[Rfam]
RNA sequence: GUUCCCUAUGAUAUUACUUUAACCAUGCUAAUGCUGAUAAUCAAUACGUGAUUAUUAUUAAUAUCAUAUAUACUGAGGGAACU
Dot-bracket structure: (((((((....................................................................))))))).